A member of the RNA family "U1 spliceosomal RNA" from Pleodorina starrii, 162 nucleotides long.
RNA sequence: AUACUUACCUGGCCCGCUUCUCGAGGUGGUCCCGAUGGCCUCGGUUGCAUGGUUGGUCUUUGCCUUGCACUUCGCAAGGGCCUUCCGUGGUCGGCCCUUUAUGGUGUCCGGCAGGGCUUAAUUUUUGUAAGGCUGAGGAUCUGCGCACUGCGCGACCUCGGC
Numbered sequence: 001a002u003a004c005u006u007a008c009c010u011g012g013c014c015c016g017c018u019u020c021u022c023g024a025g026g027u028g029g030u031c032c033c034g035a036u037g038g039c040c041u042c043g044g045u046u047g048c049a050u051g052g053u054u055g056g057u058c059u060u061u062g063c064c065u066u067g068c069a070c071u072u073c074g075c076a077a078g079g080g081c082c083u084u085c086c087g088u089g090g091u092c093g094g095c096c097c098u099u100u101a102u103g104g105u106g107u108c109c110g111g112c113a114g115g116g117c118u119u120a121a122u123u124u125u126u127g128u129a130a131g132g133c134u135g136a137g138g139a140u141c142u143g144c145g146c147a148c149u150g151c152g153c154g155a156c157c158u159c160g161g162c
Base pairs, nucleotide, nucleotide: 012117013116014115015114016048017047020044021043023042024041025040026039027038049088050087051086052085056081057080058079060077061076062075063074090112091111092110093108094107095106097104098103133161134160135159136158137157142154143153144152145151
It scores 94 bits against the family's covariance model. The family's consensus secondary structure is taken from published work. The source organism's lineage runs through Eukaryota, Viridiplantae, core chlorophytes, Chlorophyceae and Pleodorina.